Rfam assigns this 65-nucleotide RNA sequence from Medicago truncatula to the family "MIR2629 microRNA precursor family". It scores 61 bits against the family's covariance model. Taxonomically the source falls in Medicago (Eukaryota, eudicotyledons, Gunneridae, Pentapetalae). Pairs were carried over by alignment from the consensus structure, which was predicted with RNAalifold.
RNA sequence: UUUUUUUUUUUUCGUCGGCAGUUAACUGCCAAAGGAACUUCGGUAGUUAACUGCCGCAGGGACUU
Numbered sequence: 001u002u003u004u005u006u007u008u009u010u011u012u013c014g015u016c017g018g019c020a021g022u023u024a025a026c027u028g029c030c031a032a033a034g035g036a037a038c039u040u041c042g043g044u045a046g047u048u049a050a051c052u053g054c055c056g057c058a059g060g061g062a063c064u065u
Base pairs, nucleotide, nucleotide: 012061013060015058016056017055018054019053020052021051022050023049024048025047026046027045028044029043